The record is a 102-nucleotide part of an RNA from Methanobrevibacter ruminantium, which matches "Archaeal large subunit ribosomal RNA" in Rfam. It is one of the family's seed sequences. The family's consensus secondary structure is taken from published work.
[Rfam]
RNA sequence: GAUAUGGCCUGUAAGGAAUGAUGUCCCUGUUAAAGAGGCAGUGGUGACGCUGUAGUAUGAUUGGGGAUGGACUAGGGUCGUAUCGUCCGUCUUGUAACACGG
Numbered sequence: 001g002a003u004a005u006g007g008c009c010u011g012u013a014a015g016g017a018a019u020g021a022u023g024u025c026c027c028u029g030u031u032a033a034a035g036a037g038g039c040a041g042u043g044g045u046g047a048c049g050c051u052g053u054a055g056u057a058u059g060a061u062u063g064g065g066g067a068u069g070g071a072c073u074a075g076g077g078u079c080g081u082a083u084c085g086u087c088c089g090u091c092u093u094g095u096a097a098c099a100c101g102g
Base pairs, nucleotide, nucleotide: 001084002083003082004081005080006079007078008077009076010075015073016072023068024067025066026065027064028063029062034058039052040051041050042049043048087102088101089100090099